The family of this 121-nucleotide sequence from Natronincola peptidivorans is "Molybdenum/Tungsten riboswitch aptamer (Moco RNA motif)".
RNA sequence: AAAAUUUCAUAUCUCCGAGCCUAACCUCCUAAAGAGUUGAUUACUUUAUGGAGACUAGGCCAGGGUAUAAUUGGAAACAAUUAUGCCUCCCAUUGUGGAAAGGAGUUCUAUAAAAACAGCU
Numbered sequence: 001a002a003a004a005u006u007u008c009a010u011a012u013c014u015c016c017g018a019g020c021c022u023a024a025c026c027u028c029c030u031a032a033a034g035a036g037u038u039g040a041u042u043a044c045u046u047u048a049u050g051g052a053g054a055c056u057a058g059g060c061c062a063g064g065g066u067a068u069a070a071u072u073g074g075a076a077a078c079a080a081u082u083a084u085g086c087c088u089c090c091c092a093u094u095g096u097g098g099a100a101a102g103g104a105g106u107u108c109u110a111u112a113a114a115a116a117c118a119g120c121u
Stems, first nucleotide, its partner, number of pairs: 006112001011107001013105004019060005026053004033047004063088011089098002

It scores 77 bits against the family's covariance model.